[Rfam]
RNA sequence: CUGGGAAAUGAUGAUAAGUAUAUCGAUAUUUCAGAGGCGUAUGCAAUGCUGAACGAACUAUUUGCACGUCAGUCUGAUUCCAG
Numbered sequence: 001c002u003g004g005g006a007a008a009u010g011a012u013g014a015u016a017a018g019u020a021u022a023u024c025g026a027u028a029u030u031u032c033a034g035a036g037g038c039g040u041a042u043g044c045a046a047u048g049c050u051g052a053a054c055g056a057a058c059u060a061u062u063u064g065c066a067c068g069u070c071a072g073u074c075u076g077a078u079u080c081c082a083g
Stems, first nucleotide, its partner, number of pairs: 001083006

Small nucleolar RNA Z122: an 83-nucleotide RNA. The family's consensus secondary structure was predicted with PFOLD. It is annotated as a C/D-box small nucleolar RNA. Rfam 15.1 lists 822 matches to the family in 247 species.